c-di-AMP riboswitch aptamer (ydaO/yuaA leader): a 140-nucleotide RNA sequence from Nonomuraea glycinis.
Rfam describes the family as follows. This family represents a conserved RNA structure found upstream of the ydaO and yuaA genes in Bacillus subtilis and related genes in other bacteria. The ydaO/yuaA element is thought to act as a genetic 'off' switch for the ydaO and yuaA genes in its native state.
The organism belongs to Nonomuraea, within Bacteria.
The match comes from Rfam's covariance-model search (94 bits).
RNA sequence: GUCCUGUGACCGCUGAAUCCGCUUCAGGGCGGAACCGGGGACCCACGUCCUUUGGGGUGAAUCGGCGCCAUCGCGCGCCGUAGGGCAGCUUCCACGCCCGAACCCGUCAGCUAACCCGGUAAGCGGCAUGGAAGCAAGGA
Numbered sequence: 001g002u003c004c005u006g007u008g009a010c011c012g013c014u015g016a017a018u019c020c021g022c023u024u025c026a027g028g029g030c031g032g033a034a035c036c037g038g039g040g041a042c043c044c045a046c047g048u049c050c051u052u053u054g055g056g057g058u059g060a061a062u063c064g065g066c067g068c069c070a071u072c073g074c075g076c077g078c079c080g081u082a083g084g085g086c087a088g089c090u091u092c093c094a095c096g097c098c099c100g101a102a103c104c105c106g107u108c109a110g111c112u113a114a115c116c117c118g119g120u121a122a123g124c125g126g127c128a129u130g131g132a133a134g135c136a137a138g139g140a
Base pairs, nucleotide, nucleotide: 011125012124013123014122018033019032020031021030022029034120035119036118037117038116039115044054045053055105056104057103063080064079065078066077083099084098085097086096